[Rfam]
RNA sequence: CGUCUCCUCCAUGUCUCCUCCUGAUAUGGAUUCGGCCCGCCGCUUGGUGGGCCUUUCUUU
Numbered sequence: 001c002g003u004c005u006c007c008u009c010c011a012u013g014u015c016u017c018c019u020c021c022u023g024a025u026a027u028g029g030a031u032u033c034g035g036c037c038c039g040c041c042g043c044u045u046g047g048u049g050g051g052c053c054u055u056u057c058u059u060u
Stems, first nucleotide, its partner, number of pairs: 008030008034053008
Dot-bracket structure: .......((((((((.......))))))))...((((((((....)))))))).......
This 60-nucleotide sequence from Paraburkholderia ribeironis belongs to the Rfam family "Betaproteobacteria toxic small RNA". The match comes from Rfam's covariance-model search (67 bits). From the family's description: Overexpression in amino aid rich medium attenuates growth, suggesting role in repressing amino acid intake and metabolism. The base pairs follow the family's consensus structure, which was predicted with WAR. For this family Rfam cites "A vast collection of microbial genes that are toxic to bacteria" (Kimelman et al., Genome Res, 2012).